[Rfam]
Nucleotides: 214
Base pairs, nucleotide, nucleotide: 001137002136003135004134005133014127015126016125017124026116027115028114030113031112032111036052037051038050039049040048053098054097055096056095057094058093059092138153139152140151141150
Number, partner (000 for none) and nucleotide at each position: 001137g002136g003135c004134g005133a006000u007000a008000a009000a010000c011000u012000g013000u014127c015126a016125u017124c018000g019000a020000a021000a022000u023000a024000a025000a026116c027115c028114c029000a030113u031112c032111g033000g034000a035000c036052c037051c038050g039049g040048g041000g042000g043000c044000g045000g046000u047000a048040c049039c050038c051037g052036g053098c054097g055096c056095c057094u058093c059092c060000a061000c062000c063000c064000a065000a066000g067000c068000c069000c070000a071000u072000c073000c074000c075000a076000a077000g078000g079000g080000a081000u082000g083000g084000u085000u086000u087000u088000c089000g090000g091000c092059g093058g094057g095056g096055g097054c098053g099000a100000a101000a102000u103000a104000g105000g106000a107000u108000c109000g110000a111032c112031g113030a114028g115027g116026g117000c118000g119000u120000a121000a122000a123000g124017g125016g126015u127014g128000u129000u130000c131000u132000u133005u134004c135003g136002c137001u138153c139152g140151g141150c142000a143000u144000g145000g146000u147000a148000c149000c150141g151140c152139c153138g154000u155000u156000a157000u158000c159000g160000g161000a162000c163000c164000a165000a166000a167000u168000c169000u170000g171000u172000a173000g174000u175000u176000g177000c178000a179000a180000a181000c182000g183000a184000c185000a186000a187000c188000u189000a190000u191000g192000c193000u194000c195000c196000g197000g198000u199000u200000g201000c202000u203000g204000u205000c206000g207000c208000u209000g210000c211000g212000u213000a214000a

The record is a 214-nucleotide RNA sequence from Kaistia sp. 32K, which matches "permuted transfer-messenger RNA" in Rfam. From the family's description: Bacterial tmRNA, also known as 10Sa RNA or SsrA, is named for its dual tRNA and mRNA-like properties. Its role is to liberate the mRNA from a stalled ribosome. Lineage of the source: Bacteria > Pseudomonadati > Pseudomonadota > Kaistiaceae > Kaistia. The family's RNA type in Rfam is non-coding RNA gene.